[Rfam]
Rfam assigns this 455-nucleotide RNA sequence from Thiomicrorhabdus sediminis to the family "cspA thermoregulator". The family's RNA type in Rfam is RNA thermoregulator.

RNA sequence: UUCGUUGUAUUGUUUGUGUAGCUAGAAAUUAGGCCUAAUAUUUACAAUCUACAUUUCGCUGUUUUACUCGUAAUACCUCGUCCUGCAGUUUUAAGUUCCAAGUCUCCAUUUUUAAGCGUUACCGCCUUUGAAUAGGCAAUCAUAUUUUUUAAAUUACAGGAUUAUUAUUAUGUCUAAUACAGUUACAGGAACCGUUAAGUGGUUCAACGAAACAAAAGGUUUUGGUUUUAUUGCACAAGAGUCUGGUCCAGACGUCUUCGCUCACUUCAGCGCUAUCCAGGGCGACGGUUUCAAAACUCUAGCAGAAGGUCAGCAGGUAGAAUUUAGCGUGACUCAAGGGCCAAAAGGGCCACAAGCUGAGAACAUUGUAGCGGUUUAAUCGAUACAAUCAGUCAGUUGAUCAUCGGUAAGAAUCCGAUUGAUCUAAAAAACCCGCUUCAGGCGGGUUUUUUUGU
Numbered sequence: 001u002u003c004g005u006u007g008u009a010u011u012g013u014u015u016g017u018g019u020a021g022c023u024a025g026a027a028a029u030u031a032g033g034c035c036u037a038a039u040a041u042u043u044a045c046a047a048u049c050u051a052c053a054u055u056u057c058g059c060u061g062u063u064u065u066a067c068u069c070g071u072a073a074u075a076c077c078u079c080g081u082c083c084u085g086c087a088g089u090u091u092u093a094a095g096u097u098c099c100a101a102g103u104c105u106c107c108a109u110u111u112u113u114a115a116g117c118g119u120u121a122c123c124g125c126c127u128u129u130g131a132a133u134a135g136g137c138a139a140u141c142a143u144a145u146u147u148u149u150u151a152a153a154u155u156a157c158a159g160g161a162u163u164a165u166u167a168u169u170a171u172g173u174c175u176a177a178u179a180c181a182g183u184u185a186c187a188g189g190a191a192c193c194g195u196u197a198a199g200u201g202g203u204u205c206a207a208c209g210a211a212a213c214a215a216a217a218g219g220u221u222u223u224g225g226u227u228u229u230a231u232u233g234c235a236c237a238a239g240a241g242u243c244u245g246g247u248c249c250a251g252a253c254g255u256c257u258u259c260g261c262u263c264a265c266u267u268c269a270g271c272g273c274u275a276u277c278c279a280g281g282g283c284g285a286c287g288g289u290u291u292c293a294a295a296a297c298u299c300u301a302g303c304a305g306a307a308g309g310u311c312a313g314c315a316g317g318u319a320g321a322a323u324u325u326a327g328c329g330u331g332a333c334u335c336a337a338g339g340g341c342c343a344a345a346a347g348g349g350c351c352a353c354a355a356g357c358u359g360a361g362a363a364c365a366u367u368g369u370a371g372c373g374g375u376u377u378a379a380u381c382g383a384u385a386c387a388a389u390c391a392g393u394c395a396g397u398u399g400a401u402c403a404u405c406g407g408u409a410a411g412a413a414u415c416c417g418a419u420u421g422a423u424c425u426a427a428a429a430a431a432c433c434c435g436c437u438u439c440a441g442g443c444g445g446g447u448u449u450u451u452u453u454g455u
Stems, first nucleotide, its partner, number of pairs: 004022006029238002033234002046227004054212002057209002060206002064202002069172007082160004087155002093113001094111002124137003174189002178185001241333003246328001251259002262320001264318004272311001273309002277302001279300003284297001338351002341349002353399003356394001357392004402421002405417003426452012